The record is a 131-nucleotide sequence from Paenibacillus sp. FSL H7-0331, which matches "pan motif" in Rfam. The base pairs follow the family's consensus structure, which is taken from published work. The match comes from Rfam's covariance-model search (38 bits).
[Rfam]
RNA sequence: GAGGCGAUAUCAGUGAUGAAUUGCACUCACAAACCUGCUUUUGAUUAUUGUGAAUGGAAUCGUUUAACAACUGAAAAGCUUUAUGGAAUAUGUCGGAUUCUGCUCUGAGCCUAACGGACCGAGACAGAAGG
Numbered sequence: 001g002a003g004g005c006g007a008u009a010u011c012a013g014u015g016a017u018g019a020a021u022u023g024c025a026c027u028c029a030c031a032a033a034c035c036u037g038c039u040u041u042u043g044a045u046u047a048u049u050g051u052g053a054a055u056g057g058a059a060u061c062g063u064u065u066a067a068c069a070a071c072u073g074a075a076a077a078g079c080u081u082u083a084u085g086g087a088a089u090a091u092g093u094c095g096g097a098u099u100c101u102g103c104u105c106u107g108a109g110c111c112u113a114a115c116g117g118a119c120c121g122a123g124a125c126a127g128a129a130g131g
Base pairs, nucleotide, nucleotide: 001028002027003026004024005023006022007021008020010019011018100127101126102125103123104122105121107119110117111116